[Rfam]
RNA: mir-130 microRNA precursor family
RNA sequence: CCCAAGCCCGGGCUCUUUCCACCGAGCCACGCUGAUGGUAUUUGUUAAGCAGCGUGGCUCAGUGGAAAGAGCAUGGGUUUUGGA
Numbered sequence: 001c002c003c004a005a006g007c008c009c010g011g012g013c014u015c016u017u018u019c020c021a022c023c024g025a026g027c028c029a030c031g032c033u034g035a036u037g038g039u040a041u042u043u044g045u046u047a048a049g050c051a052g053c054g055u056g057g058c059u060c061a062g063u064g065g066a067a068a069g070a071g072c073a074u075g076g077g078u079u080u081u082g083g084a
Base pairs, nucleotide, nucleotide: 002083003082005079006078007077008076009075010074012072013071014070015069016068017067018066019065022062024060025059026058027057028056029055030054